[Rfam]
RNA sequence: CCAGAGGGUCGGGCGACCGCGGGUGUCUUCAGGAUGCGCGAGGAAAGUCCGGGCUCCACGUAACGACGGUGCCGGGUAACGCCCGGCCGGGGUGACCCGAGGGAAAGUGCCACAGAGAGCAGACAGCGAACCGCUUCGGCGACGCGAAAAGUGAAAGGGUGCGGUAAGAGCGCACCGCGCGCCUGGUAACAGGGGCGGCACGGCAAACCCCACCGGGAGCAAGACCGAAUAGGGGCGGCACAUGAGCAUCGUUGCUGCUCGUCGCCCGGGUUGGUCGCUUGAGCCUGUAUGCGAGUGCAGGCCUAGAGGAAUGGUCGCCCAUCCCGCCUCGGCGGGGGGACAGAACCCGGCUUACAGACCCUCUGGCGCU
Dot-bracket structure: ((((((((((((((((((.((.((((((...)))))).))....[[[.[[[[[((((....[[[[.((((((((((.....)))))(((((....)))).)((...(((((............(..((...(((....)))...))....)......((((((.......))))))((((.((((....)))).))).)..)))..)))))))))))))...((((......((((((.....(((((.]]]]..))))).)))))).....))))......((((((((....))))))))..........)))))))..........................]]]]]]]].).))))))))))....
Shown here is a 370-nucleotide RNA sequence from Sphingomonas sp. Leaf357, a member of the family "Bacterial RNase P class A".
Ribonuclease P (RNase P) is a ubiquitous endoribonuclease, found in archaea, bacteria and eukarya as well as chloroplasts and mitochondria.
Taxonomically the source falls in Sphingomonas (Bacteria, Pseudomonadota, Alphaproteobacteria, Sphingomonadaceae).
It scores 294 bits against the family's covariance model.
Rfam classes the family as a ribozyme.